[Rfam]
RNA: Repression of heat shock gene expression (ROSE) element
Organism: Devosia sp. I507
RNA sequence: CCGGAUGCCCAAUAGGGAUCCGGCUUCGGGGACCGGACGAAACCGGCCUCCAUACUUGUAUCCAUGUUGCUCAAAGGAGGAUAUGGCUAUGAGCA
Numbered sequence: 001c002c003g004g005a006u007g008c009c010c011a012a013u014a015g016g017g018a019u020c021c022g023g024c025u026u027c028g029g030g031g032a033c034c035g036g037a038c039g040a041a042a043c044c045g046g047c048c049u050c051c052a053u054a055c056u057u058g059u060a061u062c063c064a065u066g067u068u069g070c071u072c073a074a075a076g077g078a079g080g081a082u083a084u085g086g087c088u089a090u091g092a093g094c095a
Stems, first nucleotide, its partner, number of pairs: 001023006008017002028051004033046004055093006062086007070079003